[Rfam]
RNA sequence: ACCCAGUGAGGAGGAUCUCCCAUUAAUUGAUAGGAAGUGCCGUAUGAUACUAUAAACAACAACGCUGUG
Numbered sequence: 001a002c003c004c005a006g007u008g009a010g011g012a013g014g015a016u017c018u019c020c021c022a023u024u025a026a027u028u029g030a031u032a033g034g035a036a037g038u039g040c041c042g043u044a045u046g047a048u049a050c051u052a053u054a055a056a057c058a059a060c061a062a063c064g065c066u067g068u069g
Stems, first nucleotide, its partner, number of pairs: 014063001034053001036051004
Rfam assigns this 69-nucleotide sequence from Trifolium pratense to the family "Small nucleolar RNA U49". The family's RNA type in Rfam is C/D-box small nucleolar RNA. Pairs were carried over by alignment from the consensus structure, which was predicted with CMfinder. Rfam links the family to the GO terms RNA processing and nucleolus. Clan: SNORD49 clan. For this family Rfam cites "Multiple snoRNA gene clusters from Arabidopsis" (Brown et al., RNA, 2001).